This 246-nucleotide RNA sequence from Microtus ochrogaster belongs to the Rfam family "bip internal ribosome entry site (IRES)". It scores 112 bits against the family's covariance model. The family has 9 seed sequences and 234 matches in Rfam 15.1. NCBI's taxonomy places the organism under Eukaryota, Opisthokonta, Gnathostomata, Boreoeutheria, Microtus. The family's consensus secondary structure was predicted with PFOLD. This family represents the bip internal ribosome entry site (IRES). BiP protein expression has been found to be significantly enhanced by the heat shock response due to IRES-dependent translation.
[Rfam]
RNA sequence: CACUGGCCAGACAACACAGAGAGCAGCUCCGGGUCUCCGUGGGCGUGAGAGUUGAGCGCCGCGGCCUGCUUCUUCCAGGCCUUCGCUGAGCCUGCUUCGCGGCUCCUCCCGACUCCGGAUCGGAACGUCGUCGCGCUGCGAGGCUACAGCCUGUUGCUGCACGUCCGCGACUCCCGAGCGACCGCUGAGCGACUGGUCCACAGCGCCGGCAAGAUGAAGUUCACUUUGGUGGCGGCGGCGCUGCUG
Numbered sequence: 001c002a003c004u005g006g007c008c009a010g011a012c013a014a015c016a017c018a019g020a021g022a023g024c025a026g027c028u029c030c031g032g033g034u035c036u037c038c039g040u041g042g043g044c045g046u047g048a049g050a051g052u053u054g055a056g057c058g059c060c061g062c063g064g065c066c067u068g069c070u071u072c073u074u075c076c077a078g079g080c081c082u083u084c085g086c087u088g089a090g091c092c093u094g095c096u097u098c099g100c101g102g103c104u105c106c107u108c109c110c111g112a113c114u115c116c117g118g119a120u121c122g123g124a125a126c127g128u129c130g131u132c133g134c135g136c137u138g139c140g141a142g143g144c145u146a147c148a149g150c151c152u153g154u155u156g157c158u159g160c161a162c163g164u165c166c167g168c169g170a171c172u173c174c175c176g177a178g179c180g181a182c183c184g185c186u187g188a189g190c191g192a193c194u195g196g197u198c199c200a201c202a203g204c205g206c207c208g209g210c211a212a213g214a215u216g217a218a219g220u221u222c223a224c225u226u227u228g229g230u231g232g233c234g235g236c237g238g239c240g241c242u243g244c245u246g
Base pairs, nucleotide, nucleotide: 004235006233007232008231009230015143019139028118029117031115032114033113034112056105058103059102060101061100062099063098064097147159148158149157150156